[Rfam]
RNA: 6S / SsrS RNA
Organism: Methylococcus capsulatus
RNA sequence: UAUUCCCUGUAACGCUCGAAGCAUGCUGGGUUACUCUUUGAGCCUAAUCUAAAACCCCGGGACUUCCGGGUGUUCGAUGUGCGCAAGUCCGCUCCGAGCGGAAAGCCUGAUUCGGCAUCCUCUGGUCCCACCUGAACCGUUUGGUUCAAGGGCGAAAGCAUGCUACGGCGCAAACGGGGAAUAC
Numbered sequence: 001u002a003u004u005c006c007c008u009g010u011a012a013c014g015c016u017c018g019a020a021g022c023a024u025g026c027u028g029g030g031u032u033a034c035u036c037u038u039u040g041a042g043c044c045u046a047a048u049c050u051a052a053a054a055c056c057c058c059g060g061g062a063c064u065u066c067c068g069g070g071u072g073u074u075c076g077a078u079g080u081g082c083g084c085a086a087g088u089c090c091g092c093u094c095c096g097a098g099c100g101g102a103a104a105g106c107c108u109g110a111u112u113c114g115g116c117a118u119c120c121u122c123u124g125g126u127c128c129c130a131c132c133u134g135a136a137c138c139g140u141u142u143g144g145u146u147c148a149a150g151g152g153c154g155a156a157a158g159c160a161u162g163c164u165a166c167g168g169c170g171c172a173a174a175c176g177g178g179g180a181a182u183a184c
Stems, first nucleotide, its partner, number of pairs: 002182009013170003017167002034152004039148006059129003063125002068120001070119001074115004083106002088102005